[Rfam]
The family of this 25-nucleotide sequence from Limosa lapponica is "Pseudoknot of upstream pseudoknot domain (UPD) of the 3'UTR".
A search with the family's covariance model found it, with a score of 32 bits.
A reference for the family is Koenig et al. (1999), "Molecular characterization of a new furovirus mainly infecting rye", Arch Virol.
The organism belongs to Limosa lapponica, within Eukaryota.

RNA sequence: GUAUAACUUGUUGGGCAGAAACAAG
Dot-bracket structure: [[.[..((((((].]]...))))))